[Rfam]
RNA sequence: GCCGUAUGCCCUUCUUGGGCGUUUCCUCCCUAGACUUGGGCCGCUCGCCGAAAGGCUGAGCGGCCUCUUUCUUGUGGGGG
Numbered sequence: 001g002c003c004g005u006a007u008g009c010c011c012u013u014c015u016u017g018g019g020c021g022u023u024u025c026c027u028c029c030c031u032a033g034a035c036u037u038g039g040g041c042c043g044c045u046c047g048c049c050g051a052a053a054g055g056c057u058g059a060g061c062g063g064c065c066u067c068u069u070u071c072u073u074g075u076g077g078g079g080g
Base pairs, nucleotide, nucleotide: 008020009019010018011017039065040064041063042062043061044060045059046058047057